Record summary: The record is a 304-nucleotide RNA, which matches "Plant signal recognition particle RNA" in Rfam. The family's consensus secondary structure is taken from published work. The family's RNA type in Rfam is non-coding RNA gene.
RNA sequence: GUCGAGCUAAGUAACAUGAGCUUGUAACCCAUGUGGGGACAUUUAGAUGGUGGAACACUGGUUCGGGUCCACGGGCCGGUUCUGUUGUUGGCAUGUUUCUGGGCUGCCCAGUCCAAGCUGUGAGUAAGACGUGUGUGUCAAGCGAAGGCUUGGCUCAAACGGCUUCUAAAGUUGGAGGGUAAUGCGUGAGGCUGGUUUCACAGAGCAGCGACUACUUCCCGCUUACAGCAGUGGACGGAUCACAGUUUAGCGUCGCUCAGAACCACUAUGGCCUGCUGGUCCGAUCUCAUAUGAACCACCAUUU
Numbered sequence: 001g002u003c004g005a006g007c008u009a010a011g012u013a014a015c016a017u018g019a020g021c022u023u024g025u026a027a028c029c030c031a032u033g034u035g036g037g038g039a040c041a042u043u044u045a046g047a048u049g050g051u052g053g054a055a056c057a058c059u060g061g062u063u064c065g066g067g068u069c070c071a072c073g074g075g076c077c078g079g080u081u082c083u084g085u086u087g088u089u090g091g092c093a094u095g096u097u098u099c100u101g102g103g104c105u106g107c108c109c110a111g112u113c114c115a116a117g118c119u120g121u122g123a124g125u126a127a128g129a130c131g132u133g134u135g136u137g138u139c140a141a142g143c144g145a146a147g148g149c150u151u152g153g154c155u156c157a158a159a160c161g162g163c164u165u166c167u168a169a170a171g172u173u174g175g176a177g178g179g180u181a182a183u184g185c186g187u188g189a190g191g192c193u194g195g196u197u198u199c200a201c202a203g204a205g206c207a208g209c210g211a212c213u214a215c216u217u218c219c220c221g222c223u224u225a226c227a228g229c230a231g232u233g234g235a236c237g238g239a240u241c242a243c244a245g246u247u248u249a250g251c252g253u254c255g256c257u258c259a260g261a262a263c264c265a266c267u268a269u270g271g272c273c274u275g276c277u278g279g280u281c282c283g284a285u286c287u288c289a290u291a292u293g294a295a296c297c298a299c300c301a302u303u304u
Base pairs, nucleotide, nucleotide: 001040002039003038004023005022006021007020008019010017028037029036030035045304046303047302048301049300050299051298052297053296056293057292059289060288061285062284063283065281066280068279069278072275073274074273075272076271077270078264079263080262081261082260083259084258087256089255090254091253099250100249101248102247103246104245105244106243108238109237111236112235113234114233115232117229118228119227120226121225122224123223124222125221126165127164128163130161131160132159134157135156137154138153139152140151141150142149143148166171174219175218176217177216178215185210186209187208192203193202194201